RNA sequence: GUCGCUGCGAGGCGGGGUCUGGAGGAAGCCGUAGACAAGAGGUGCGAGGCGACGGACAGAAACCACAUAAAGGAAGCCUAGGACGCGAAACAAGCCGGCACGAGAUGGCGAAUUUGAUGGUACAGCGUCUAGGGUAGACGCGGCGCUUGUGCAUCGACAGUUCACACU
Numbered sequence: 001g002u003c004g005c006u007g008c009g010a011g012g013c014g015g016g017g018u019c020u021g022g023a024g025g026a027a028g029c030c031g032u033a034g035a036c037a038a039g040a041g042g043u044g045c046g047a048g049g050c051g052a053c054g055g056a057c058a059g060a061a062a063c064c065a066c067a068u069a070a071a072g073g074a075a076g077c078c079u080a081g082g083a084c085g086c087g088a089a090a091c092a093a094g095c096c097g098g099c100a101c102g103a104g105a106u107g108g109c110g111a112a113u114u115u116g117a118u119g120g121u122a123c124a125g126c127g128u129c130u131a132g133g134g135u136a137g138a139c140g141c142g143g144c145g146c147u148u149g150u151g152c153a154u155c156g157a158c159a160g161u162u163c164a165c166a167c168u
Stems, first nucleotide, its partner, number of pairs: 002015005028168001031165002035161002041155006047148005063143002066140001068138001076135003081130006089115002094109004
Rfam assigns this 168-nucleotide RNA sequence from Vitreoscilla filiformis to the family "Group II catalytic intron D1-D4-3". A search with the family's covariance model found it, with a score of 89 bits. Rfam describes the family as follows. Group II introns are found in rRNA, tRNA and mRNA of organelles in fungi, plants and protists, and also in mRNA in bacteria. The pairing is the family consensus, mapped onto this sequence.